A member of the RNA family "TPP riboswitch aptamer (THI element)" from Candidatus Aquirickettsiella gammari, 148 nucleotides long.
The organism belongs to Candidatus Aquirickettsiella, within Bacteria.
A reference for the family is Welz and Breaker (2007), "Ligand binding and gene control characteristics of tandem riboswitches in Bacillus anthracis", RNA.
RNA sequence: UCUUUCGCUUAGGGGUGCCAUAAGCUUUUUGCUAAAACUAAAAAUAUUUUAAUAAACAAAAGUUUUACAAAUAGUUUAAAUAGGCUGAGAAAUACCCUUAUCACCUGAUCGGGAUCAUGCCCGCGUAGGAAAAGUGUAUGUUAAAAUC
Number, nucleotide and partner (000 for none) at each position: 001u000002c000003u000004u000005u000006c136007g135008c134009u133010u132011a098012g097013g096014g095015g000016u092017g085018c084019c083020a000021u000022a000023a000024g000025c000026u000027u000028u000029u000030u000031g000032c000033u000034a000035a000036a000037a000038c000039u000040a000041a000042a000043a000044a000045u000046a000047u000048u000049u000050u000051a000052a000053u000054a000055a000056a000057c000058a000059a000060a000061a000062g000063u000064u000065u000066u000067a000068c000069a000070a000071a000072u000073a000074g000075u000076u000077u000078a000079a000080a000081u000082a000083g019084g018085c017086u000087g000088a000089g000090a000091a000092a016093u000094a000095c014096c013097c012098u011099u000100a000101u000102c000103a000104c129105c128106u127107g126108a000109u000110c123111g122112g121113g120114a000115u000116c000117a000118u000119g000120c113121c112122c111123g110124c000125g000126u107127a106128g105129g104130a000131a000132a010133a009134g008135u007136g006137u000138a000139u000140g000141u000142u000143a000144a000145a000146a000147u000148c000

The base pairs follow the family's consensus structure, which is taken from published work.